[Rfam]
RNA sequence: GGAUUGCAUCAAGAGUUGGGCGUUUGCCCAUGCCAACCUGUGACCCACACAAGGUGGAAAGACGAUGCGGCUUGCAAAGCAAUCAAUGGGAACCGG
Numbered sequence: 001g002g003a004u005u006g007c008a009u010c011a012a013g014a015g016u017u018g019g020g021c022g023u024u025u026g027c028c029c030a031u032g033c034c035a036a037c038c039u040g041u042g043a044c045c046c047a048c049a050c051a052a053g054g055u056g057g058a059a060a061g062a063c064g065a066u067g068c069g070g071c072u073u074g075c076a077a078a079g080c081a082a083u084c085a086a087u088g089g090g091a092a093c094c095g096g
Stems, first nucleotide, its partner, number of pairs: 006068005015031001017030005033057002037054003040050003046090001070080004
Record summary: SAM-I/IV (S-adenosyl methionine) riboswitch aptamer: a 96-nucleotide RNA from Parapusillimonas granuli. The literature on the family includes a 2008 paper in RNA by Weinberg et al., "The aptamer core of SAM-IV riboswitches mimics the ligand-binding site of SAM-I riboswitches". Taxonomically the source falls in Parapusillimonas (Bacteria, Pseudomonadati, Pseudomonadota, Alcaligenaceae).